The record is a 67-nucleotide sequence from Marivita geojedonensis, which matches "Glycine riboswitch aptamer" in Rfam.
[Rfam]
RNA sequence: CUCUGGAGAGAUUUCGGGCCUGACCCGGAACGCCGAAGGGAUAACGAUCUCAGGCGAAAGGACAGAG
Number, nucleotide and partner (000 for none) at each position: 001c067002u066003c065004u064005g063006g000007a000008g000009a000010g000011a000012u030013u029014u028015c027016g000017g000018g000019c000020c000021u000022g000023a000024c000025c000026c000027g015028g014029a013030a012031c000032g055033c054034c053035g051036a050037a000038g000039g049040g048041a000042u000043a000044a000045c000046g000047a000048u040049c039050u036051c035052a000053g034054g033055c032056g000057a000058a000059a000060g000061g000062a000063c005064a004065g003066a002067g001
Pairs were carried over by alignment from the consensus structure. The family is grouped with related families in Rfam's "Glycine riboswitch clan". NCBI's taxonomy places the organism under Bacteria, Alphaproteobacteria, Rhodobacterales, Roseobacteraceae, Marivita.